[Rfam]
RNA sequence: UUUCCACUUUAGCAGAGCGAAUGCUGGAGGGGAGGUUGCCUCCUCUCCAGCAUUCGCUCUGCUAAAGUGGAAA
Numbered sequence: 001u002u003u004c005c006a007c008u009u010u011a012g013c014a015g016a017g018c019g020a021a022u023g024c025u026g027g028a029g030g031g032g033a034g035g036u037u038g039c040c041u042c043c044u045c046u047c048c049a050g051c052a053u054u055c056g057c058u059c060u061g062c063u064a065a066a067g068u069g070g071a072a073a
Base pairs, nucleotide, nucleotide: 001073002072003071005069006068007067010066011063012062013061014060015059016058017057018056020054021053022052023051024050025049026048027047
The family of this 73-nucleotide sequence from Ixodes scapularis is "mir-16 microRNA precursor family". Clan: mir-15 clan. Rfam links the family to the GO terms RISC complex and miRNA-mediated post-transcriptional gene silencing. A search with the family's covariance model found it, with a score of 44 bits.